[Rfam]
RNA sequence: UGUAGGAGCCAAUGAUGUUUUUUACUGAAAAUGUCUGAAGCAUCUCAGUGAUGCCAACUCUGUGUGGUGCUGAGGCUUCUUUGCCA
Dot-bracket structure: ...(((((((...............................................................)))))))......
RNA: Small nucleolar RNA SNORD91 family